[Rfam]
Shown here is an 86-nucleotide RNA sequence from Polymorphospora rubra, a member of the family "ZMP/ZTP riboswitch aptamer (pfl RNA motif)".
NCBI's taxonomy places the organism under Bacteria, Actinomycetota, Actinomycetes, Micromonosporaceae, Polymorphospora.
Its family is annotated with one-carbon metabolic process and regulation of purine nucleotide biosynthetic process in the Gene Ontology.
RNA sequence: GGCACCGGCCGCUACUGGCGCGGGUGGGCUACCACCGGGGAACCGGCCGUACCAAGGGUGUGGCGCCGACCGCCUGGGCGCCUCCG
Numbered sequence: 001g002g003c004a005c006c007g008g009c010c011g012c013u014a015c016u017g018g019c020g021c022g023g024g025u026g027g028g029c030u031a032c033c034a035c036c037g038g039g040g041a042a043c044c045g046g047c048c049g050u051a052c053c054a055a056g057g058g059u060g061u062g063g064c065g066c067c068g069a070c071c072g073c074c075u076g077g078g079c080g081c082c083u084c085c086g
Stems, first nucleotide, its partner, number of pairs: 006049006015040002017074004024035004063081005